[Rfam]
RNA sequence: CUAGUCUUUUCUCUUUCCCGUUCACUCUUCUCGUCAGUCGAUGAUCGAAUAUAGAAUGACAGAACAGUGCGCGAGAAGGAAGACUAG
Numbered sequence: 001c002u003a004g005u006c007u008u009u010u011c012u013c014u015u016u017c018c019c020g021u022u023c024a025c026u027c028u029u030c031u032c033g034u035c036a037g038u039c040g041a042u043g044a045u046c047g048a049a050u051a052u053a054g055a056a057u058g059a060c061a062g063a064a065c066a067g068u069g070c071g072c073g074a075g076a077a078g079g080a081a082g083a084c085u086a087g
Stems, first nucleotide, its partner, number of pairs: 001087006009080004016076002019073003023069004028063002031061001033060004038055002041052001
Rfam assigns this 87-nucleotide RNA sequence from Pristionchus pacificus to the family "mir-2238 microRNA precursor family". Pairs were carried over by alignment from the consensus structure, which was predicted with RNAalifold. Rfam 15.1 lists 22 matches to the family in 3 species.